[Rfam]
RNA sequence: GCCUUGUUAGCUCAGUUGGCUUAGAGCGUUCGGCUUUUAACCGAAAUGUCGGGGGUUCGACCCCCCCACAGGGCG
Numbered sequence: 001g002c003c004u005u006g007u008u009a010g011c012u013c014a015g016u017u018g019g020c021u022u023a024g025a026g027c028g029u030u031c032g033g034c035u036u037u038u039a040a041c042c043g044a045a046a047u048g049u050c051g052g053g054g055g056u057u058c059g060a061c062c063c064c065c066c067c068a069c070a071g072g073g074c075g
Base pairs, nucleotide, nucleotide: 001074002073003072004071005070006069007068010027011026012025013024029045030044031043032042033041051067052066053065054064055063
The family of this 75-nucleotide RNA from Coemansia sp. RSA 2050 is "tRNA".
The match comes from Rfam's covariance-model search (65 bits).
The base pairs follow the family's consensus structure, which is taken from published work.